[Rfam]
Shown here is a 195-nucleotide RNA from Bradyrhizobium sp. ORS 278, a member of the family "FMN riboswitch aptamer (RFN element)". Pairs were carried over by alignment from the consensus structure, which is taken from published work. Taxonomically the source falls in Bradyrhizobium (Bacteria, Pseudomonadati, Alphaproteobacteria, Nitrobacteraceae). The match comes from Rfam's covariance-model search (105 bits).

RNA sequence: UCAUGUUCUCAGGGCGGGGCGAAAUUCCCCACCGGCGGUAAGCGGUCUCGGUCGAGCCGCAAGCCCGCGAGCGCCUUUUCUGCAAGGGCCAGUCUGGAAAAUCCUGUUCUCCGGAUCGGGCCAUGAAGAGAAGGGUCAGCAGAUUCGGUGCGACUCCGAAGCCGACGGUCACAGUCCGGAUGAAAGAGAACGGGU
Numbered sequence: 001u002c003a004u005g006u007u008c009u010c011a012g013g014g015c016g017g018g019g020c021g022a023a024a025u026u027c028c029c030c031a032c033c034g035g036c037g038g039u040a041a042g043c044g045g046u047c048u049c050g051g052u053c054g055a056g057c058c059g060c061a062a063g064c065c066c067g068c069g070a071g072c073g074c075c076u077u078u079u080c081u082g083c084a085a086g087g088g089c090c091a092g093u094c095u096g097g098a099a100a101a102u103c104c105u106g107u108u109c110u111c112c113g114g115a116u117c118g119g120g121c122c123a124u125g126a127a128g129a130g131a132a133g134g135g136u137c138a139g140c141a142g143a144u145u146c147g148g149u150g151c152g153a154c155u156c157c158g159a160a161g162c163c164g165a166c167g168g169u170c171a172c173a174g175u176c177c178g179g180a181u182g183a184a185a186g187a188g189a190a191c192g193g194g195u
Base pairs, nucleotide, nucleotide: 004192005191006190007189008188009187010186017029018028019027031175032174033164034163035068036067037066038065063162064161071140072139144160145159146158147157148156166178167177168176